[Rfam]
RNA sequence: AAAAGCCUUCGGGGCAGGGUGAGGAAGCAGCGCUUCCAAUUCCCGAUCGGUGGUCAAAACCCACGAGCGCAUUUCCGCGCACGACCCGGUGAAAUUCCGGGGUCGACGGUACAGUCCGGAUGAAAGAAGGCCAAA
Numbered sequence: 001a002a003a004a005g006c007c008u009u010c011g012g013g014g015c016a017g018g019g020u021g022a023g024g025a026a027g028c029a030g031c032g033c034u035u036c037c038a039a040u041u042c043c044c045g046a047u048c049g050g051u052g053g054u055c056a057a058a059a060c061c062c063a064c065g066a067g068c069g070c071a072u073u074u075c076c077g078c079g080c081a082c083g084a085c086c087c088g089g090u091g092a093a094a095u096u097c098c099g100g101g102g103u104c105g106a107c108g109g110u111a112c113a114g115u116c117c118g119g120a121u122g123a124a125a126g127a128a129g130g131c132c133a134a135a
Stems, first nucleotide, its partner, number of pairs: 005131006017044003046115002048105002050064004059103002067080003085101005107118003
RNA: FMN riboswitch aptamer (RFN element)
Organism: Bellilinea caldifistulae